[Rfam]
RNA sequence: UGAUGAUAAUUCCCCAUGUGUCUGAAAGUUACAGGCAUGUGAUUUUAGGUCAUCAUAAAGUGAUGAGAAACUCUUCACCCAUGUUGGCUAUGUAAGUUUAUACUUACAAAAAUUCCAUAUAUGGUUUUGCAGUUUCAGACAAAU
Numbered sequence: 001u002g003a004u005g006a007u008a009a010u011u012c013c014c015c016a017u018g019u020g021u022c023u024g025a026a027a028g029u030u031a032c033a034g035g036c037a038u039g040u041g042a043u044u045u046u047a048g049g050u051c052a053u054c055a056u057a058a059a060g061u062g063a064u065g066a067g068a069a070a071c072u073c074u075u076c077a078c079c080c081a082u083g084u085u086g087g088c089u090a091u092g093u094a095a096g097u098u099u100a101u102a103c104u105u106a107c108a109a110a111a112a113u114u115c116c117a118u119a120u121a122u123g124g125u126u127u128u129g130c131a132g133u134u135u136c137a138g139a140c141a142a143a144u
Base pairs, nucleotide, nucleotide: 001055002054003053004052005051006050007049015041016040017039018038020036021035022034023033067136068135069134070133071132072131079124080123081122082121083120084119085117086116087115091108092107093106094105095104
About this RNA: The record is a 144-nucleotide RNA sequence from Araneus ventricosus, which matches "Small nucleolar RNA SNORA79" in Rfam. NCBI's taxonomy places the organism under Eukaryota, Metazoa, Bilateria, Protostomia, Araneus. A search with the family's covariance model found it, with a score of 57 bits. The literature on the family includes a 2006 paper in RNA by Schattner et al., "A computational screen for mammalian pseudouridylation guide H/ACA RNAs".